The record is a 54-nucleotide sequence from Albula glossodonta, which matches "UnaL2 LINE 3' element" in Rfam.
By type it is a cis-regulatory element.
It scores 66 bits against the family's covariance model.
Its family is annotated with transposition, RNA-mediated in the Gene Ontology.

[Rfam]
RNA sequence: UGGACUUUGUGCUGUAAGUCGCUCUGGAUAAGAGCGUCUGCUAAAUGCCUGUAA
Numbered sequence: 001u002g003g004a005c006u007u008u009g010u011g012c013u014g015u016a017a018g019u020c021g022c023u024c025u026g027g028a029u030a031a032g033a034g035c036g037u038c039u040g041c042u043a044a045a046u047g048c049c050u051g052u053a054a
Stems, first nucleotide, its partner, number of pairs: 013043001014041003020036006